[Rfam]
RNA sequence: UUUUAGCCCUGAUUGAAGUGGAAAUCCUUUUCUCUCGUUUUUUUACGAGAGAAAAGAUUGAAGCGUAAAGCAGGAAAUAGC
Numbered sequence: 001u002u003u004u005a006g007c008c009c010u011g012a013u014u015g016a017a018g019u020g021g022a023a024a025u026c027c028u029u030u031u032c033u034c035u036c037g038u039u040u041u042u043u044u045a046c047g048a049g050a051g052a053a054a055a056g057a058u059u060g061a062a063g064c065g066u067a068a069a070g071c072a073g074g075a076a077a078u079a080g081c
Base pairs, nucleotide, nucleotide: 009073010072011071013069014068018064019063023059024058025057026056029054030053031052032051033050034049035048036047037046038045